Shown here is a 95-nucleotide RNA sequence from Roseiconus nitratireducens, a member of the family "Bacterial small signal recognition particle RNA". The base pairs follow the family's consensus structure, which is taken from published work. The organism belongs to Roseiconus, within Bacteria. A search with the family's covariance model found it, with a score of 50 bits. Gene Ontology terms of the family: SRP-dependent cotranslational protein targeting to membrane, signal sequence recognition and signal recognition particle, plasma membrane targeting. On this family, see Rosenblad et al., Nucleic Acids Res 2003: "SRPDB: Signal Recognition Particle Database".
RNA sequence: GGUGGCGACCCUUGCGACUGCGAAUCGUGAACCUGGUCAGGACUUAAUUGUAGCAGCCAUAAGCGGUGUAGCUUUGUGCGAGGGUCGCCUCCGGC
Numbered sequence: 001g002g003u004g005g006c007g008a009c010c011c012u013u014g015c016g017a018c019u020g021c022g023a024a025u026c027g028u029g030a031a032c033c034u035g036g037u038c039a040g041g042a043c044u045u046a047a048u049u050g051u052a053g054c055a056g057c058c059a060u061a062a063g064c065g066g067u068g069u070a071g072c073u074u075u076g077u078g079c080g081a082g083g084g085u086c087g088c089c090u091c092c093g094g095c
Stems, first nucleotide, its partner, number of pairs: 004089011015076001017075001020072002024067005034059004042051002